The family of this 127-nucleotide sequence from Dimorphilus gyrociliatus is "U4atac minor spliceosomal RNA". Rfam describes the family as follows. U4atac is an essential component of the minor U12-type spliceosome complex which is required for removal of the rarer class of eukaryotic introns (AT-AC, U12-type).
[Rfam]
RNA sequence: ACCGUCUUUGUCUUGGGGUGAGCGCCUUUUCGAUGAGGUUUACUGAGAGGAGGCCUGCUGACACCGAGAUUAAAAAUUUACCCCUACCGUUUGCCUUUGUUGGUGAAUAGGUAGAAUUUUUAGAGCC
Number, nucleotide and partner (000 for none) at each position: 001a000002c000003c000004g000005u000006c018007u017008u016009u015010g000011u000012c000013u000014u000015g009016g008017g007018g006019u000020g058021a000022g056023c000024g000025c053026c052027u051028u050029u049030u048031c047032g000033a000034u000035g000036a044037g043038g000039u000040u000041u000042a000043c037044u036045g000046a000047g031048a030049g029050g028051a027052g026053g025054c000055c000056u022057g000058c020059u000060g000061a000062c000063a000064c000065c000066g000067a000068g000069a000070u000071u000072a000073a000074a000075a000076a000077u000078u000079u000080a000081c000082c000083c000084c114085u113086a112087c111088c110089g000090u000091u106092u105093g104094c103095c102096u000097u000098u000099g000100u000101u000102g095103g094104u093105g092106a091107a000108u000109a000110g088111g087112u086113a085114g084115a000116a000117u000118u000119u000120u000121u000122a000123g000124a000125g000126c000127c000
A search with the family's covariance model found it, with a score of 64 bits.